Makes More Granules Regulator RNA (mmgR): a 77-nucleotide sequence from Novosphingobium guangzhouense.
SuhB later renamed mmgR (makes more granules regulator) was a putative non-coding RNA found multiple times in the Agrobacterium tumefaciens genome and related alpha-proteobacteria.
Gene Ontology terms of the family: protein binding, DNA-templated transcription, termination and response to nitrogen compound.
It is annotated as a small RNA.
Clan: suhB sRNA clan.
The literature on the family includes a 2005 paper in Genome Biol by Corbino et al., "Evidence for a second class of S-adenosylmethionine riboswitches and other regulatory RNA motifs in alpha-proteobacteria".

RNA sequence: GGGGCGGGCCUUUCAGGCAUCCUCUCCCAAAACUUCUACAGGGCUGGUCUUCGGACCGGCCCUUUCUUUUUGAGCGC
Numbered sequence: 001g002g003g004g005c006g007g008g009c010c011u012u013u014c015a016g017g018c019a020u021c022c023u024c025u026c027c028c029a030a031a032a033c034u035u036c037u038a039c040a041g042g043g044c045u046g047g048u049c050u051u052c053g054g055a056c057c058g059g060c061c062c063u064u065u066c067u068u069u070u071u072g073a074g075c076g077c
Stems, first nucleotide, its partner, number of pairs: 008018004041062009